[Rfam]
RNA sequence: GAAACCUCAUCUUCGGUUGCGCCAUCCGGGGCAUAGACCAGUGUUUUUUAACACGAGCGAGCGUCCGCUCGGAUGAGGAGAGAGA
Numbered sequence: 001g002a003a004a005c006c007u008c009a010u011c012u013u014c015g016g017u018u019g020c021g022c023c024a025u026c027c028g029g030g031g032c033a034u035a036g037a038c039c040a041g042u043g044u045u046u047u048u049u050a051a052c053a054c055g056a057g058c059g060a061g062c063g064u065c066c067g068c069u070c071g072g073a074u075g076a077g078g079a080g081a082g083a084g085a
Stems, first nucleotide, its partner, number of pairs: 005078008016038003019032002022030002041054005055070004
This 85-nucleotide RNA belongs to the Rfam family "RAGATH-10 RNA".
Pairs were carried over by alignment from the consensus structure, which is taken from published work.
It is one of the family's seed sequences.
The literature on the family includes a 2015 paper in Nat Chem Biol by Weinberg et al., "New classes of self-cleaving ribozymes revealed by comparative genomics analysis".